[Rfam]
The family of this 100-nucleotide RNA from Paenibacillus rhizosphaerae is "Purine riboswitch aptamer". Taxonomically the source falls in Paenibacillus (Bacteria, Bacillati, Bacillota, Bacilli). Pairs were carried over by alignment from the consensus structure, which is taken from published work. Rfam's curators write: Riboswitches are metabolite binding domains within certain messenger RNAs that serve as precision sensors for their corresponding targets.

RNA sequence: GAGAAACGACAUAUGUUCUUUCGUAUAAUCCCGGGAAUUGGCCCGGGAGUCUCUACGAGAUCACCGUAAUGAUCUGGCUACGAAUUUAGAAGAGAUGAUG
Dot-bracket structure: ...................((((((...(((((((......))))))).........((((((......))))))...))))))................